[Rfam]
RNA sequence: AGCUCUAUGAUUAAUCAGCCUAAUAUGGGCAAUAUACGCUAUUCCGAUGAGCAGAAAUUUUGAGAGAGAUUGAGAGCU
Numbered sequence: 001a002g003c004u005c006u007a008u009g010a011u012u013a014a015u016c017a018g019c020c021u022a023a024u025a026u027g028g029g030c031a032a033u034a035u036a037c038g039c040u041a042u043u044c045c046g047a048u049g050a051g052c053a054g055a056a057a058u059u060u061u062g063a064g065a066g067a068g069a070u071u072g073a074g075a076g077c078u
Stems, first nucleotide, its partner, number of pairs: 001078005